Rfam assigns this 135-nucleotide RNA from Cyprinodon variegatus to the family "Small nucleolar RNA SNORA14". The source organism's lineage runs through Eukaryota, Deuterostomia, Euacanthomorphacea, Atherinomorphae and Cyprinodon. Rfam's curators write: ACA14 is a member of the H/ACA class of snoRNA that guide the sites of modification of uridines to pseudouridines. The match comes from Rfam's covariance-model search (46 bits).

[Rfam]
RNA sequence: AUGCAUCCUUAGAAAGCCCCCCAGCUGCUACUGUAGUUUUCUGGGACAAGAAAGGGUGCUAGAACAACGUUAGAACUAUCCAAAGCUGAGAGCAGAGUUUCUGUAGUUCUCAGCUAUUUCACCUCUAAGACAGAA
Numbered sequence: 001a002u003g004c005a006u007c008c009u010u011a012g013a014a015a016g017c018c019c020c021c022c023a024g025c026u027g028c029u030a031c032u033g034u035a036g037u038u039u040u041c042u043g044g045g046a047c048a049a050g051a052a053a054g055g056g057u058g059c060u061a062g063a064a065c066a067a068c069g070u071u072a073g074a075a076c077u078a079u080c081c082a083a084a085g086c087u088g089a090g091a092g093c094a095g096a097g098u099u100u101c102u103g104u105a106g107u108u109c110u111c112a113g114c115u116a117u118u119u120c121a122c123c124u125c126u127a128a129g130a131c132a133g134a135a
Stems, first nucleotide, its partner, number of pairs: 003059004009051002020045005065133001070128005084115007092107002098103001